[Rfam]
RNA sequence: GACAAGGAGGGCGAGAAACCCUCCCGCCGAAAGACCAAGGGUUCCUGAUCAACGCUAAUCGGAUCAGGUUAAGUCGGGGCCUAAUGGGCAGCCGCAAGGCGGACCAGAUGGACAGCCGGUCAACAUUCCGGCACCCUUUGAGAGAGCGAUGCGGCGACGGAGAAGUGACACACCCGCGCACUGACGGAAUAGUGCGUUGAACCGGGUAGCUAUACGUGGCGUAGUGAAGUACGCGCCAUGUGGUGAGCCGGGAUAGUACCGAGCGCCCCCGGGCAAUCGGAUAGCGGUGGUAACCAUGCUCCCAAGAAAACCCGCUAAGCAAUCUUUCAGAGGCCCGUACCGCAAACCGACACAGGUGGUCGGGUAGAAAAUACCAAGGCGCU
Numbered sequence: 001g002a003c004a005a006g007g008a009g010g011g012c013g014a015g016a017a018a019c020c021c022u023c024c025c026g027c028c029g030a031a032a033g034a035c036c037a038a039g040g041g042u043u044c045c046u047g048a049u050c051a052a053c054g055c056u057a058a059u060c061g062g063a064u065c066a067g068g069u070u071a072a073g074u075c076g077g078g079g080c081c082u083a084a085u086g087g088g089c090a091g092c093c094g095c096a097a098g099g100c101g102g103a104c105c106a107g108a109u110g111g112a113c114a115g116c117c118g119g120u121c122a123a124c125a126u127u128c129c130g131g132c133a134c135c136c137u138u139u140g141a142g143a144g145a146g147c148g149a150u151g152c153g154g155c156g157a158c159g160g161a162g163a164a165g166u167g168a169c170a171c172a173c174c175c176g177c178g179c180a181c182u183g184a185c186g187g188a189a190u191a192g193u194g195c196g197u198u199g200a201a202c203c204g205g206g207u208a209g210c211u212a213u214a215c216g217u218g219g220c221g222u223a224g225u226g227a228a229g230u231a232c233g234c235g236c237c238a239u240g241u242g243g244u245g246a247g248c249c250g251g252g253a254u255a256g257u258a259c260c261g262a263g264c265g266c267c268c269c270c271g272g273g274c275a276a277u278c279g280g281a282u283a284g285c286g287g288u289g290g291u292a293a294c295c296a297u298g299c300u301c302c303c304a305a306g307a308a309a310a311c312c313c314g315c316u317a318a319g320c321a322a323u324c325u326u327u328c329a330g331a332g333g334c335c336c337g338u339a340c341c342g343c344a345a346a347c348c349g350a351c352a353c354a355g356g357u358g359g360u361c362g363g364g365u366a367g368a369a370a371a372u373a374c375c376a377a378g379g380c381g382c383u
Stems, first nucleotide, its partner, number of pairs: 006024006025381004033361004039341002044068006053061002075337004080111002085106003089102001091100003115132005135333011146320002151315004159302004165295001167294001171289004176197006198256001202251004209244003216239007224232002259280004347356002363375004
RNA: Bacterial large subunit ribosomal RNA, nucleotides 1315 to 1697